A member of the RNA family "mir-10 microRNA precursor family" from Denticeps clupeoides, 70 nucleotides long.
Gene Ontology terms of the family: miRNA-mediated post-transcriptional gene silencing and RISC complex.
[Rfam]
RNA sequence: UGCCACAAACCCGUAGAUCCGAACUUGUGAUGAAUGCCGGCACAAGCUCGUGUCUAUAGGUAUGUGUCUG
Number, nucleotide and partner (000 for none) at each position: 001u000002g068003c000004c066005a065006c064007a063008a000009a000010c060011c059012c000013g000014u000015a055016g054017a053018u052019c000020c050021g049022a048023a000024c046025u045026u044027g043028u042029g041030a000031u000032g000033a000034a000035u000036g000037c000038c000039g000040g000041c029042a028043c027044a026045a025046g024047c000048u022049c021050g020051u000052g018053u017054c016055u015056a000057u000058a000059g011060g010061u000062a000063u007064g006065u005066g004067u000068c002069u000070g000